[Rfam]
RNA sequence: GAGUCGCAUCAAGAGUUGAGCUGACGCUCAACGCCAACCUGCUCCCGGGCAAGGUGGCGUCCCCGAUCUGCGGGGAGAUGUGGCCGAUCCGGCAACAAACGGGAUGAAG
Numbered sequence: 001g002a003g004u005c006g007c008a009u010c011a012a013g014a015g016u017u018g019a020g021c022u023g024a025c026g027c028u029c030a031a032c033g034c035c036a037a038c039c040u041g042c043u044c045c046c047g048g049g050c051a052a053g054g055u056g057g058c059g060u061c062c063c064c065g066a067u068c069u070g071c072g073g074g075g076a077g078a079u080g081u082g083g084c085c086g087a088u089c090c091g092g093c094a095a096c097a098a099a100c101g102g103g104a105u106g107a108a109g
Base pairs, nucleotide, nucleotide: 006081007080008079009078010077015032017030018029019028020027021026033058034057035056038054039053040052041050042049043048083093084092085091086090